PyrG leader: an 80-nucleotide RNA from Bacillus pumilus. Pairs were carried over by alignment from the consensus structure, which is taken from published work. Rfam's curators put it in the seed alignment. The organism belongs to Bacillus pumilus, within Bacteria. The family's RNA type in Rfam is cis-regulatory leader.

RNA sequence: GGGCUCUCUAAAAAAGAGUACGUAAAGAUACGUUCAUUUACGCUCCCUUUCAUUUAUUUGAAAGGGAGCUUUCUUAUUUU
Number, nucleotide and partner (000 for none) at each position: 001g000002g000003g000004c000005u000006c000007u000008c000009u000010a000011a000012a000013a000014a000015a000016g000017a000018g000019u000020a000021c000022g000023u000024a000025a000026a000027g000028a000029u000030a000031c000032g000033u000034u000035c000036a000037u000038u000039u000040a000041c000042g069043c068044u067045c066046c065047c064048u063049u062050u061051c060052a059053u000054u000055u000056a000057u000058u000059u052060g051061a050062a049063a048064g047065g046066g045067a044068g043069c042070u000071u000072u000073c000074u000075u000076a000077u000078u000079u000080u000